The family of this 182-nucleotide sequence is "6S / SsrS RNA". Rfam's curators put it in the seed alignment. On this family, see Chen et al., Molecular Cell 2017: "6S RNA Mimics B-Form DNA to Regulate Escherichia coli RNA Polymerase". It is annotated as a non-coding RNA gene. Rfam's curators write: E. coli 6S RNA was the first non coding RNA to be sequenced, but its function was unknown until recently. It consists of 184 nucleotides that fold into an extended hairpin structure with a large single-stranded internal bulge. The 6S RNA specifically associates with RNA polymerase holoenzyme containing the sigma70 specificity factor.
RNA sequence: ACAACUCUAGGGUGUUCGCCAGUACGUCUAUUCCCCUGCCGAUACUUAAACUUAUGGAUGUGUUCUGUAUAUUUUGAGUGUAUGCCCACCUUGAGUGGGAAAUCCAUUAAGUGUACGUCGCGUCCACCUUGAACUCUUCGGGUUCAGGGUAACGACCAUGCAACAGCAUCUCGGGAGUGUUU
Numbered sequence: 001a002c003a004a005c006u007c008u009a010g011g012g013u014g015u016u017c018g019c020c021a022g023u024a025c026g027u028c029u030a031u032u033c034c035c036c037u038g039c040c041g042a043u044a045c046u047u048a049a050a051c052u053u054a055u056g057g058a059u060g061u062g063u064u065c066u067g068u069a070u071a072u073u074u075u076g077a078g079u080g081u082a083u084g085c086c087c088a089c090c091u092u093g094a095g096u097g098g099g100a101a102a103u104c105c106a107u108u109a110a111g112u113g114u115a116c117g118u119c120g121c122g123u124c125c126a127c128c129u130u131g132a133a134c135u136c137u138u139c140g141g142g143u144u145c146a147g148g149g150u151a152a153c154g155a156c157c158a159u160g161c162a163a164c165a166g167c168a169u170c171u172c173g174g175g176a177g178u179g180u181u182u
Base pairs, nucleotide, nucleotide: 004178005177006176007175008174010172011171012169013168014167015166018164034149035148036147037146038145039142040141056125057124058123060121061120062119064117068115069114070113071112072111073110074109080103081102085099086098087097088096089095